[Rfam]
RNA: glmS glucosamine-6-phosphate activated ribozyme aptamer
RNA sequence: UUUUGUCGGAAAGCGCCAGGACUGUAAGGGAGAGCUUACAGUUGACGAGGAGGAGGAGCAUCGAGUGAUCGGCGGAUGCCUCCCGGUGUUGCGUCAGCACCGUGGAAUCACAGCACAAACCAGCAAGGUGACUUGCUGCACAAAGGCUGUGGUAUGACGCAUA
Number, nucleotide and partner (000 for none) at each position: 001u000002u000003u000004u000005g000006u000007c000008g000009g000010a000011a000012a000013g000014c000015g000016c000017c000018a000019g000020g043021a042022c041023u040024g039025u038026a037027a036028g000029g000030g000031a000032g000033a000034g000035c000036u027037u026038a025039c024040a023041g022042u021043u020044g000045a000046c000047g000048a000049g000050g000051a000052g083053g082054a081055g080056g079057a000058g000059c000060a000061u072062c071063g070064a069065g000066u000067g000068a000069u064070c063071g062072g061073c000074g000075g000076a000077u000078g000079c056080c055081u054082c053083c052084c102085g101086g100087u099088g098089u097090u000091g000092c000093g000094u000095c000096a000097g089098c088099a087100c086101c085102g084103u000104g000105g000106a000107a153108u152109c151110a150111c149112a148113g147114c000115a000116c000117a000118a000119a000120c000121c138122a137123g136124c135125a134126a133127g132128g000129u000130g000131a000132c127133u126134u125135g124136c123137u122138g121139c000140a000141c000142a000143a000144a000145g000146g000147c113148u112149g111150u110151g109152g108153u107154a000155u000156g000157a000158c000159g000160c000161a000162u000163a000